[Rfam]
RNA: Lysine riboswitch aptamer
Organism: Schinkia azotoformans
RNA sequence: AGUGAGUAUAGAGGCGCGAAAACCAUUAGUACACUAUGGGAGGAUAAUGAGAUCCAGGGAUCAUGGUUGAAAGGGGAAUUCGCCGAAGUGAUGAGAAGCUCAUUUUUCUCAGAUACUGGUUUUGCAUCGAAUAGGUGCAAGAUUGUCAUAUAGCGUUGUCUAUAUGGAGGGCUAUCUCACGC
Numbered sequence: 001a002g003u004g005a006g007u008a009u010a011g012a013g014g015c016g017c018g019a020a021a022a023c024c025a026u027u028a029g030u031a032c033a034c035u036a037u038g039g040g041a042g043g044a045u046a047a048u049g050a051g052a053u054c055c056a057g058g059g060a061u062c063a064u065g066g067u068u069g070a071a072a073g074g075g076g077a078a079u080u081c082g083c084c085g086a087a088g089u090g091a092u093g094a095g096a097a098g099c100u101c102a103u104u105u106u107u108c109u110c111a112g113a114u115a116c117u118g119g120u121u122u123u124g125c126a127u128c129g130a131a132u133a134g135g136u137g138c139a140a141g142a143u144u145g146u147c148a149u150a151u152a153g154c155g156u157u158g159u160c161u162a163u164a165u166g167g168a169g170g171g172c173u174a175u176c177u178c179a180c181g182c
Stems, first nucleotide, its partner, number of pairs: 006177001008175004016083005023076002033067007087117004092111007118144011146167007